[Rfam]
RNA: rpsL sRNA
Organism: Pelagibacterales bacterium SAG-MED43
RNA sequence: UUGGCGAUGUUUUUGGUUGGAAUGUAGUGUUAAUCUUAGACACUAAACGCUGCCAUAAAUAACCUGUCAGUUAUUUCUUUCAAAAACUAA
Numbered sequence: 001u002u003g004g005c006g007a008u009g010u011u012u013u014u015g016g017u018u019g020g021a022a023u024g025u026a027g028u029g030u031u032a033a034u035c036u037u038a039g040a041c042a043c044u045a046a047a048c049g050c051u052g053c054c055a056u057a058a059a060u061a062a063c064c065u066g067u068c069a070g071u072u073a074u075u076u077c078u079u080u081c082a083a084a085a086a087c088u089a090a
Stems, first nucleotide, its partner, number of pairs: 011085006019077006025045006049071004